[Rfam]
RNA sequence: UUGGAAAGUUGGCAAACUCGGCGAAAGCCGGGGACGCAAAGCCAUGGGCCUAAUGCGUAAUGCAAUGGCUGCCAGGUUGCAGAG
Number, nucleotide and partner (000 for none) at each position: 001u000002u000003g000004g000005a000006a000007a000008g000009u000010u000011g000012g037013c036014a000015a000016a000017c032018u031019c030020g029021g028022c027023g000024a000025a000026a000027g022028c021029c020030g019031g018032g017033g000034a000035c000036g013037c012038a000039a000040a078041g077042c076043c075044a000045u074046g073047g072048g069049c068050c067051u000052a000053a000054u000055g063056c062057g061058u000059a000060a000061u057062g056063c055064a000065a000066u000067g050068g049069c048070u000071g000072c047073c046074a045075g043076g042077u041078u040079g000080c000081a000082g000083a000084g000
RNA: c-di-GMP-I riboswitch aptamer
Organism: Alicyclobacillaceae bacterium